[Rfam]
RNA sequence: AUCUCUUAUUGGCAAACUUUAUGAAAAUAAAGGACGCAAAGCCACGGGCCUAACGCAUUUGCUAUGGCAGCCGGGUUGCAAAU
Numbered sequence: 001a002u003c004u005c006u007u008a009u010u011g012g013c014a015a016a017c018u019u020u021a022u023g024a025a026a027a028u029a030a031a032g033g034a035c036g037c038a039a040a041g042c043c044a045c046g047g048g049c050c051u052a053a054c055g056c057a058u059u060u061g062c063u064a065u066g067g068c069a070g071c072c073g074g075g076u077u078g079c080a081a082a083u
Stems, first nucleotide, its partner, number of pairs: 012037002017032006040077004045073003048068003055062002

The record is an 83-nucleotide sequence from Niallia nealsonii, which matches "c-di-GMP-I riboswitch aptamer" in Rfam. From the family's description: GEMM was predicted in a large-scale screen for bacterial structured RNA regulatory elements. Rfam 15.1 lists 5,092 matches to the family in 1,772 species.